[Rfam]
RNA sequence: AGAGAGACCCUCCGAUGAGGGGUUGCCGAGACAGCUAUCAAACGACCUUACGCUGCAUGAUUGGUAAACCAGUAUAUGGUGAGCGGUAAGGAAAAACGGGGACAUUGAUCCCCCUAGGU
Numbered sequence: 001a002g003a004g005a006g007a008c009c010c011u012c013c014g015a016u017g018a019g020g021g022g023u024u025g026c027c028g029a030g031a032c033a034g035c036u037a038u039c040a041a042a043c044g045a046c047c048u049u050a051c052g053c054u055g056c057a058u059g060a061u062u063g064g065u066a067a068a069c070c071a072g073u074a075u076a077u078g079g080u081g082a083g084c085g086g087u088a089a090g091g092a093a094a095a096a097c098g099g100g101g102a103c104a105u106u107g108a109u110c111c112c113c114c115u116a117g118g119u
Stems, first nucleotide, its partner, number of pairs: 001011002014039004021032001023030002046091006052080002055077001057075001060073004096115001098113004
Group II catalytic intron D1-D4-2: a 119-nucleotide RNA from Nitritalea halalkaliphila. The literature on the family includes a 2003 paper in Crit Rev Biochem Mol Biol by Lehmann and Schmidt, "Group II introns: structure and catalytic versatility of large natural ribozymes". Rfam describes the family as follows. Group II introns are found in rRNA, tRNA and mRNA of organelles in fungi, plants and protists, and also in mRNA in bacteria. The pairing is the family consensus, mapped onto this sequence.